[Rfam]
RNA sequence: AUGUUAAAGUAGAAGCCAUCCGCUUCUCACCUUACGGCGUUCGUCGCUAAGGUAUCUUCUGGUCCUGAGCUAAAGUGUGCUCACGAUUGUUUGGAAGACGGGUGGUAUUCAUCCGUCUUUUUUGUUUUAA
Numbered sequence: 001a002u003g004u005u006a007a008a009g010u011a012g013a014a015g016c017c018a019u020c021c022g023c024u025u026c027u028c029a030c031c032u033u034a035c036g037g038c039g040u041u042c043g044u045c046g047c048u049a050a051g052g053u054a055u056c057u058u059c060u061g062g063u064c065c066u067g068a069g070c071u072a073a074a075g076u077g078u079g080c081u082c083a084c085g086a087u088u089g090u091u092u093g094g095a096a097g098a099c100g101g102g103u104g105g106u107a108u109u110c111a112u113c114c115g116u117c118u119u120u121u122u123u124g125u126u127u128u129a130a
Stems, first nucleotide, its partner, number of pairs: 011027006029053003035046004097117009

The family of this 130-nucleotide sequence from Desulfosporosinus sp. Tol-M is "Ribosomal protein L20 leader". Rfam's curators write: This family is a putative r-protein leader autoregulatory structure found in B. subtilis and other low-GC Gram-positive bacteria. It is located in the 5' untranslated regions of mRNAs encoding initiation factor 3 followed by ribosomal proteins L35 and L20 (infC-rpmI-rplT). A Rho-independent transcription terminator structure that is probably involved in regulation is included at the 3' end. The family's consensus secondary structure was predicted with CMfinder. The match comes from Rfam's covariance-model search (61 bits). Lineage of the source: Bacteria > Bacillati > Bacillota > Eubacteriales > Desulfosporosinus.